[Rfam]
RNA sequence: AAAGCAGGCCGCAAUUACAGUGCUUCAUUUGGUGGAAGGACUGCCAUUACCCUGCUGAGAGCAACAUCCUGCCGCAGAGUUACAGCUUCUCUCCUCUGUGGGAUGUGGACACUCUGUAACAGGCACAGCU
Numbered sequence: 001a002a003a004g005c006a007g008g009c010c011g012c013a014a015u016u017a018c019a020g021u022g023c024u025u026c027a028u029u030u031g032g033u034g035g036a037a038g039g040a041c042u043g044c045c046a047u048u049a050c051c052c053u054g055c056u057g058a059g060a061g062c063a064a065c066a067u068c069c070u071g072c073c074g075c076a077g078a079g080u081u082a083c084a085g086c087u088u089c090u091c092u093c094c095u096c097u098g099u100g101g102g103a104u105g106u107g108g109a110c111a112c113u114c115u116g117u118a119a120c121a122g123g124c125a126c127a128g129c130u
Base pairs, nucleotide, nucleotide: 003056004055005054006053007052008051018043019042020041021040023038024037025036026035068123069122070121071120074117075116076115077114083108085106086105088103089102090101091100

Description
Shown here is a 130-nucleotide RNA from Hemibagrus wyckioides, a member of the family "Small nucleolar RNA SNORA69". Pairs were carried over by alignment from the consensus structure, which was predicted with PFOLD. Taxonomically the source falls in Hemibagrus (Eukaryota, Metazoa, Actinopteri, Characiphysae). U69 is a member of the H/ACA class of small nucleolar RNAs (snoRNAs) which act as guides in the the modification of uridines to pseudouridines.